[Rfam]
RNA sequence: UGCCUAACUCUGCCGCAGCCCGGGAUCCGUUCGCAGACCAUGUCCGGCAGAGACGGGGAAACCAAUUUUCGGCCCGCUUGAACGGGCCUUGGGGUGAAGCCGCGCAGCUCCUGCUUCUGUUCAGGACGUGCGGCCGGGUGUCUCCCAUCCGAAUCCGACAGCUCACCUCGCAGGCAUCGGGAGAGGCUCA
Numbered sequence: 001u002g003c004c005u006a007a008c009u010c011u012g013c014c015g016c017a018g019c020c021c022g023g024g025a026u027c028c029g030u031u032c033g034c035a036g037a038c039c040a041u042g043u044c045c046g047g048c049a050g051a052g053a054c055g056g057g058g059a060a061a062c063c064a065a066u067u068u069u070c071g072g073c074c075c076g077c078u079u080g081a082a083c084g085g086g087c088c089u090u091g092g093g094g095u096g097a098a099g100c101c102g103c104g105c106a107g108c109u110c111c112u113g114c115u116u117c118u119g120u121u122c123a124g125g126a127c128g129u130g131c132g133g134c135c136g137g138g139u140g141u142c143u144c145c146c147a148u149c150c151g152a153a154u155c156c157g158a159c160a161g162c163u164c165a166c167c168u169c170g171c172a173g174g175c176a177u178c179g180g181g182a183g184a185g186g187c188u189c190a
Stems, first nucleotide, its partner, number of pairs: 001176004008052008054170005063091002092156003100133006136150004